The family of this 380-nucleotide RNA sequence from Nocardiopsis gilva is "Bacterial RNase P class A". About the family: Ribonuclease P (RNase P) is a ubiquitous endoribonuclease, found in archaea, bacteria and eukarya as well as chloroplasts and mitochondria. Gene Ontology terms of the family: dimeric ribonuclease P complex, ribonuclease P activity and tRNA processing. The family's consensus secondary structure is taken from published work. It is annotated as a ribozyme. The source organism's lineage runs through Bacteria, Streptosporangiales, Nocardiopsidaceae, Nocardiopsis and Nocardiopsis gilva.
RNA sequence: AGAGUCGACCAGACGGUCGCGGCACCGCUCGCGGUGUCGAGGAAAGUCCGGACUCCACAGGGCAGGGUGGUCGGUAACGCCGACCCGGGGUGACCCGCGGGACAGUGCCACAGAGAACAGUCCGCCACCGCGUGCGGUGGUAAGGGUGAAACGGUGGUGUAAGAGACCACCAGCGGCCGGAGUGAUCCGGUCGGCUAGGUAAACCCCACCCGGAGCAAGGUCGAGAAGGGGGAGGUCAUCCCCCGCGCGGAUGUCCGAGGGCGGCCCGCCCGAGUCCGCGGGUUGACCGCACCGAGGCUGUCGGCAACGGCAGUCCCAGAUGGAUGGCCGUCCGGUCCCACCGGGACCGACAGAAUCCGGCUUAUCGGUCGGCUCUCUCC
Numbered sequence: 001a002g003a004g005u006c007g008a009c010c011a012g013a014c015g016g017u018c019g020c021g022g023c024a025c026c027g028c029u030c031g032c033g034g035u036g037u038c039g040a041g042g043a044a045a046g047u048c049c050g051g052a053c054u055c056c057a058c059a060g061g062g063c064a065g066g067g068u069g070g071u072c073g074g075u076a077a078c079g080c081c082g083a084c085c086c087g088g089g090g091u092g093a094c095c096c097g098c099g100g101g102a103c104a105g106u107g108c109c110a111c112a113g114a115g116a117a118c119a120g121u122c123c124g125c126c127a128c129c130g131c132g133u134g135c136g137g138u139g140g141u142a143a144g145g146g147u148g149a150a151a152c153g154g155u156g157g158u159g160u161a162a163g164a165g166a167c168c169a170c171c172a173g174c175g176g177c178c179g180g181a182g183u184g185a186u187c188c189g190g191u192c193g194g195c196u197a198g199g200u201a202a203a204c205c206c207c208a209c210c211c212g213g214a215g216c217a218a219g220g221u222c223g224a225g226a227a228g229g230g231g232g233a234g235g236u237c238a239u240c241c242c243c244c245g246c247g248c249g250g251a252u253g254u255c256c257g258a259g260g261g262c263g264g265c266c267c268g269c270c271c272g273a274g275u276c277c278g279c280g281g282g283u284u285g286a287c288c289g290c291a292c293c294g295a296g297g298c299u300g301u302c303g304g305c306a307a308c309g310g311c312a313g314u315c316c317c318a319g320a321u322g323g324a325u326g327g328c329c330g331u332c333c334g335g336u337c338c339c340a341c342c343g344g345g346a347c348c349g350a351c352a353g354a355a356u357c358c359g360g361c362u363u364a365u366c367g368g369u370c371g372g373c374u375c376u377c378u379c380c
Base pairs, nucleotide, nucleotide: 001376002375003374004373005372006371007370008369009368010367011365012332013331014330015329016328017327018326020039021038022037023036024035025034026033027032044363045362046361048360049359050358051357052356053215054214055213056212060267061266062265063264065211066210067209068208069207070084071083072082073081074080085099086097087096088095089094100206101205105204106203107200108199109198122145123144124141125140126139127138128137129136130135153171154170155169156168157167158166173195174193175192176191177190178189179188180187181186219288220287221286222285229279231277232276233275259271260270261269262268296315297314298313299312300311301310302309303308